[Rfam]
RNA sequence: UCACUCUGGAAAGCGGCGCCGCGGCGCCCGCCGACGGGGCAAGUGCGACCCACCUCGCGCGGAAACUCUCAGGCACAUAUGACAGAGCGGGAGGA
Number, nucleotide and partner (000 for none) at each position: 001u090002c089003a000004c087005u086006c085007u084008g083009g000010a000011a000012a000013g000014c000015g028016g027017c026018g025019c000020c000021g000022c000023g000024g000025c018026g017027c016028c015029c000030g074031c073032c072033g070034a069035c000036g000037g068038g067039g066040c000041a000042a000043g000044u061045g060046c059047g058048a000049c000050c000051c000052a000053c000054c000055u000056c000057g000058c047059g046060c045061g044062g000063a000064a000065a000066c039067u038068c037069u034070c033071a000072g032073g031074c030075a000076c000077a000078u000079a000080u000081g000082a000083c008084a007085g006086a005087g004088c000089g002090g001091g000092a000093g000094g000095a000
Glycine riboswitch aptamer: a 95-nucleotide sequence from Microbacterium invictum.
Lineage of the source: Bacteria > Bacillati > Actinomycetes > Micrococcales > Microbacterium.